[Rfam]
RNA sequence: GAUGAAAAAGCGCUGAGUUCUUGUCUGGGCAAGAAGCGGGGGAACCAAUUUAUUGGGGUGAAUCUCAUUUGUUAUGAGUAGGGUUAUCUCUUUCAACCCGAAUCCGUCAGCUAACCUCGUAAGCGUGAAGAAAGAGGUCGC
Number, nucleotide and partner (000 for none) at each position: 001g000002a000003u000004g000005a000006a000007a000008a000009a000010g000011c125012g124013c123014u122015g000016a000017g000018u035019u034020c033021u032022u031023g030024u029025c000026u000027g000028g000029g024030c023031a022032a021033g020034a019035a018036g120037c119038g118039g117040g116041g115042g000043a000044a000045c000046c055047a054048a000049u000050u000051u000052a000053u000054u047055g046056g105057g104058g103059u000060g000061a000062a000063u000064c078065u077066c076067a075068u000069u000070u000071g000072u000073u000074a000075u067076g066077a065078g064079u000080a000081g099082g098083g097084u096085u000086a000087u000088c000089u000090c000091u000092u000093u000094c000095a000096a084097c083098c082099c081100g000101a000102a000103u058104c057105c056106g000107u000108c000109a000110g000111c000112u000113a000114a000115c041116c040117u039118c038119g037120u036121a000122a014123g013124c012125g011126u000127g000128a000129a000130g000131a000132a000133a000134g000135a000136g000137g000138u000139c000140g000141c000
Rfam assigns this 141-nucleotide RNA from Dethiobacter sp. to the family "c-di-AMP riboswitch aptamer (ydaO/yuaA leader)". Rfam describes the family as follows. This family represents a conserved RNA structure found upstream of the ydaO and yuaA genes in Bacillus subtilis and related genes in other bacteria. The ydaO/yuaA element is thought to act as a genetic 'off' switch for the ydaO and yuaA genes in its native state. It is believed that the element may be triggered during osmotic shock leading to activation of ydaO, a predicted amino acid transporter gene, and members of the yuaA-yubG operon which code for KtrA and KtrB K+ transporters.